Small nucleolar RNA Z161/Z228: a 103-nucleotide RNA sequence from Spirodela intermedia. A search with the family's covariance model found it, with a score of 54 bits. Gene Ontology terms of the family: nucleolus and RNA processing. For this family Rfam cites "The high diversity of snoRNAs in plants: identification and comparative study of 120 snoRNA genes from Oryza sativa" (Chen et al., Nucleic Acids Res, 2003). The family has 11 seed sequences and 630 matches in Rfam 15.1. Lineage of the source: Eukaryota > Viridiplantae > Tracheophyta > Araceae > Spirodela.
RNA sequence: GGCCAGUGAUGAAAAUGGGUUGUCAAUCUCACGACGGUCAUCUGAGACGCUCUGUUUACUGGGUGUCCGUGUUGAUGCAAAGAUCCUAGAUUUCCUGAUGGCC
Numbered sequence: 001g002g003c004c005a006g007u008g009a010u011g012a013a014a015a016u017g018g019g020u021u022g023u024c025a026a027u028c029u030c031a032c033g034a035c036g037g038u039c040a041u042c043u044g045a046g047a048c049g050c051u052c053u054g055u056u057u058a059c060u061g062g063g064u065g066u067c068c069g070u071g072u073u074g075a076u077g078c079a080a081a082g083a084u085c086c087u088a089g090a091u092u093u094c095c096u097g098a099u100g101g102c103c
Stems, first nucleotide, its partner, number of pairs: 001103004048065005